[Rfam]
RNA: Purine riboswitch aptamer
Organism: Clostridium paridis
RNA sequence: UAUGAUGGUUAUUAUUCAUUUCGUAUAUGUUUGAUAAUAUGGAUCAAACGUUUCUACCAGGAGGCCGUAAACUACCUGACUACGAAUGUAUAGUUUUUUGCG
Numbered sequence: 001u002a003u004g005a006u007g008g009u010u011a012u013u014a015u016u017c018a019u020u021u022c023g024u025a026u027a028u029g030u031u032u033g034a035u036a037a038u039a040u041g042g043a044u045c046a047a048a049c050g051u052u053u054c055u056a057c058c059a060g061g062a063g064g065c066c067g068u069a070a071a072c073u074a075c076c077u078g079a080c081u082a083c084g085a086a087u088g089u090a091u092a093g094u095u096u097u098u099u100g101c102g
Stems, first nucleotide, its partner, number of pairs: 020086006029049007058078004063073002